Shown here is a 72-nucleotide RNA from Heliconius melpomene, a member of the family "mir-124 microRNA precursor family". The family's consensus secondary structure was predicted with PFOLD. The sequence is in the family's curated seed alignment. The family has 122 seed sequences and 2,215 matches in Rfam 15.1. The organism belongs to Heliconius, within Eukaryota. A reference for the family is Lai et al. (2003), "Computational identification of Drosophila microRNA genes", Genome Biol.
RNA sequence: ACCUCCUCGCGUUCACUGCGCAGCCAUAUGUGUUCCUAUCCAUCAUAAGGCACGCGGUGAAUGCCAAGAGCG
Numbered sequence: 001a002c003c004u005c006c007u008c009g010c011g012u013u014c015a016c017u018g019c020g021c022a023g024c025c026a027u028a029u030g031u032g033u034u035c036c037u038a039u040c041c042a043u044c045a046u047a048a049g050g051c052a053c054g055c056g057g058u059g060a061a062u063g064c065c066a067a068g069a070g071c072g
Base pairs, nucleotide, nucleotide: 003070004069005068009064010063011062012061013060014059015058016057018055019054020053024050025049029047030046031045032044